[Rfam]
RNA sequence: CGCCGAUAAUAGCAAACUAUACGAAAGUAUAGGACGCAAAGCUAUAGGGCCUUACAGUUUGUACUGUGUGGCAGCCAGUUACCGAA
Number, nucleotide and partner (000 for none) at each position: 001c000002g000003c000004c000005g000006a000007u000008a000009a000010u000011a000012g037013c036014a000015a000016a000017c032018u031019a030020u029021a028022c027023g000024a000025a000026a000027g022028u021029a020030u019031a018032g017033g000034a000035c000036g013037c012038a000039a000040a080041g079042c078043u077044a000045u000046a000047g076048g075049g072050c071051c070052u000053u000054a000055c066056a065057g064058u063059u000060u000061g000062u000063a058064c057065u056066g055067u000068g000069u000070g051071g050072c049073a000074g000075c048076c047077a043078g042079u041080u040081a000082c000083c000084g000085a000086a000
Annotation: This 86-nucleotide RNA sequence from Clostridium aciditolerans belongs to the Rfam family "c-di-GMP-I riboswitch aptamer". A search with the family's covariance model found it, with a score of 71 bits. Lineage of the source: Bacteria > Bacillota > Clostridia > Eubacteriales > Clostridium. The base pairs follow the family's consensus structure, which is taken from published work.